[Rfam]
Shown here is a 257-nucleotide sequence from Mastigocoleus testarum, a member of the family "HNH endonuclease-associated RNA and ORF (HEARO) RNA".
Rfam 15.1 lists 952 matches to the family in 249 species.
By type it is a non-coding RNA gene.
A reference for the family is Weinberg et al. (2009), "Exceptional structured noncoding RNAs revealed by bacterial metagenome analysis", Nature.
RNA sequence: GUCAGCAACCCAGCACUAAAGUGACUGGGCUUCCAGCCUAAAAACUGGGAGUCUCUCACGCUUCUUGUGACCGCUCUGCGGUCUAGCUGACCAGAUUAAGUGCUCCGGGCACUACGUUUCAAGGAAGUGUUAAAGUUCUCACCAAGAAAUGCGUAGCUAGUUUCUUGCUCUGAAAUCAAGAAGUUAAAUAGACCCAAUGGGUUAAGUCAGUGCUUUUUGGAUGUGCCGCCUUUAAACCUUAUCGAAGCUAACAUUAC
Numbered sequence: 001g002u003c004a005g006c007a008a009c010c011c012a013g014c015a016c017u018a019a020a021g022u023g024a025c026u027g028g029g030c031u032u033c034c035a036g037c038c039u040a041a042a043a044a045c046u047g048g049g050a051g052u053c054u055c056u057c058a059c060g061c062u063u064c065u066u067g068u069g070a071c072c073g074c075u076c077u078g079c080g081g082u083c084u085a086g087c088u089g090a091c092c093a094g095a096u097u098a099a100g101u102g103c104u105c106c107g108g109g110c111a112c113u114a115c116g117u118u119u120c121a122a123g124g125a126a127g128u129g130u131u132a133a134a135g136u137u138c139u140c141a142c143c144a145a146g147a148a149a150u151g152c153g154u155a156g157c158u159a160g161u162u163u164c165u166u167g168c169u170c171u172g173a174a175a176u177c178a179a180g181a182a183g184u185u186a187a188a189u190a191g192a193c194c195c196a197a198u199g200g201g202u203u204a205a206g207u208c209a210g211u212g213c214u215u216u217u218u219g220g221a222u223g224u225g226c227c228g229c230c231u232u233u234a235a236a237c238c239u240u241a242u243c244g245a246a247g248c249u250a251a252c253a254u255u256a257c
Stems, first nucleotide, its partner, number of pairs: 001091006008084001010029002012026002015022002030051007094243003098239001099113005116237004121232004139173002143167008154250005176220009188211002191208003196203002